Rfam assigns this 521-nucleotide sequence from Lachancea lanzarotensis to the family "Yeast U1 spliceosomal RNA". U1 is a small nuclear RNA (snRNA) component of the spliceosome (involved in pre-mRNA splicing). Its family is annotated with U1 snRNP, mRNA 5'-splice site recognition and pre-mRNA 5'-splice site binding in the Gene Ontology. The organism belongs to Lachancea, within Eukaryota. By type it is a spliceosomal small nuclear RNA.
[Rfam]
RNA sequence: AUACUUACCUUAAGAUGUCAGAGGAGAUCAAGAAGUCCUUCUGGCCAGAUAUGUCUUUCUUAAGCGAUGCCUGUGUUUUUCAGGAUACAGGUUUGCUUGCUGGGUCUCAUUUAUAGACUGCACAUACGUGCGAAAGGUGUAUUUGCUGACGUUUCGUUUUCUCGUUCUGCAAGUGUGCCAUUUUCUUUCUUAAGGAAGACAAUGGCAUGCUUGUUGGAGCCCUUUGUUUCUUCUGCCUGGAGAAGGAUGGUGCUGAUUACAAGUCAGCGCUGGGAAAGUCGGGCGCGAAUCUUGGCCGUUCUAAGUGCUGAUACUUCAGCUCUCUGUGACAACAGUCGAUUCCUGUGUGUAGGCAUUUCGUUGGCGGUUGUUUGCGGCUAUGGUCCUCGGAUGAUGGCUUCAGAUGGCUGCUAAAUGGGUGCCGUUAUUGCAUGGUGAAGGUGUGCUGUUGCGAAGUUCGGUAUAGGACAGGAUUCACGCACGGUAGAAACGGGUAGGUCUUAUAAUUUUUGAUUUCAUUC
Number, nucleotide and partner (000 for none) at each position: 001a000002u000003a000004c000005u000006u000007a000008c000009c000010u506011u505012a504013a501014g500015a499016u000017g045018u044019c043020a042021g041022a039023g038024g037025a036026g000027a000028u000029c000030a000031a000032g000033a000034a000035g000036u025037c024038c023039u022040u000041c021042u020043g019044g018045c017046c145047a144048g143049a142050u141051a140052u139053g138054u137055c136056u135057u134058u133059c132060u000061u000062a000063a000064g000065c000066g000067a000068u128069g127070c000071c000072u000073g000074u000075g000076u000077u000078u000079u000080u000081c000082a000083g000084g000085a000086u000087a000088c000089a000090g000091g000092u000093u000094u000095g000096c000097u000098u000099g000100c000101u000102g000103g000104g000105u000106c000107u000108c000109a000110u000111u000112u000113a000114u000115a000116g000117a000118c000119u000120g000121c000122a000123c000124a000125u000126a000127c069128g068129u000130g000131c000132g059133a058134a057135a056136g055137g054138u053139g052140u051141a050142u049143u048144u047145g046146c000147u000148g000149a000150c492151g491152u490153u489154u488155c487156g000157u000158u277159u276160u275161c274162u273163c272164g220165u219166u218167c217168u216169g000170c213171a212172a211173g210174u209175g000176u000177g000178c000179c000180a000181u000182u000183u000184u199185c198186u197187u196188u195189c194190u000191u000192a000193a000194g189195g188196a187197a186198g185199a184200c000201a000202a000203u000204g000205g000206c000207a000208u000209g174210c173211u172212u171213g170214u000215u000216g168217g167218a166219g165220c164221c000222c000223u000224u000225u000226g000227u000228u000229u000230c245231u244232u243233c242234u241235g000236c000237c000238u000239g000240g000241a234242g233243a232244a231245g230246g000247a000248u000249g000250g270251u269252g268253c267254u266255g265256a264257u000258u000259a000260c000261a000262a000263g000264u256265c255266a254267g253268c252269g251270c250271u000272g163273g162274g161275a160276a159277a158278g000279u000280c000281g000282g000283g000284c000285g000286c000287g000288a000289a000290u000291c000292u000293u000294g000295g000296c000297c000298g000299u000300u000301c000302u000303a000304a000305g000306u000307g000308c000309u000310g000311a000312u000313a000314c000315u000316u000317c000318a000319g000320c000321u000322c000323u000324c000325u000326g000327u000328g000329a000330c000331a000332a000333c000334a000335g000336u000337c000338g000339a000340u000341u000342c000343c000344u000345g000346u000347g000348u000349g000350u000351a000352g000353g000354c000355a000356u000357u000358u000359c000360g000361u000362u000363g000364g000365c000366g000367g000368u000369u000370g000371u000372u000373u000374g000375c000376g000377g000378c000379u000380a000381u000382g000383g000384u000385c000386c000387u000388c000389g000390g000391a000392u000393g000394a000395u000396g000397g000398c000399u000400u000401c000402a000403g000404a000405u000406g000407g000408c000409u000410g000411c000412u000413a000414a000415a000416u000417g000418g000419g000420u000421g000422c000423c000424g000425u000426u000427a000428u000429u000430g000431c000432a000433u000434g000435g000436u000437g000438a000439a000440g000441g000442u000443g000444u000445g000446c000447u000448g000449u000450u000451g000452c000453g000454a000455a000456g000457u000458u000459c000460g000461g000462u000463a000464u000465a000466g000467g000468a000469c000470a000471g000472g000473a000474u000475u000476c000477a000478c000479g000480c000481a000482c000483g000484g000485u000486a000487g155488a154489a153490a152491c151492g150493g000494g000495u000496a000497g000498g000499u015500c014501u013502u000503a000504u012505a011506a010507u000508u000509u000510u000511u000512g000513a000514u000515u000516u000517c000518a000519u000520u000521c000